[Rfam]
Nucleotides: 139
Base pairs, nucleotide, nucleotide: 002061003060005058007056015054017052018047019046020045021044022043023042024040026038027037028036064128065127066126068124069123073118080108081107082106083105084104
Number, partner (000 for none) and nucleotide at each position: 001000u002061g003060c004000u005058c006000u007056g008000u009000a010000u011000g012000g013000u014000a015054u016000c017052u018047g019046c020045a021044c022043c023042c024040a025000g026038c027037a028036g029000c030000a031000u032000u033000c034000u035000c036028c037027u038026g039000a040024u041000g042023g043022g044021g045020u046019g047018u048000u049000c050000a051000a052017a053000a054015a055000g056007c057000c058005g059000u060003g061002c062000u063000a064128c065127a066126g067000c068124a069123g070000a071000g072000c073118a074000g075000u076000g077000c078000u079000u080108g081107g082106c083105a084104u085000c086000u087000c088000u089000g090000g091000c092000u093000u094000c095000u096000g097000u098000u099000g100000u101000g102000c103000c104084a105083u106082g107081u108080c109000u110000g111000u112000u113000g114000a115000a116000c117000a118073u119000c120000g121000u122000a123069u124068u125000u126066u127065u128064g129000c130000u131000g132000a133000a134000a135000c136000a137000g138000u139000c
This 139-nucleotide RNA from Grallaria varia belongs to the Rfam family "Small nucleolar RNA SNORA8". The family is grouped with related families in Rfam's "SNORA8 clan". Pairs were carried over by alignment from the consensus structure, which was predicted with RNAfold. Rfam links the family to the GO terms nucleolus and RNA processing. A search with the family's covariance model found it, with a score of 62 bits. ACA8 is a member of the H/ACA class of snoRNA that guide the sites of modification of uridines to pseudouridines. The source organism's lineage runs through Eukaryota, Vertebrata, Euteleostomi, Sauropsida and Grallaria.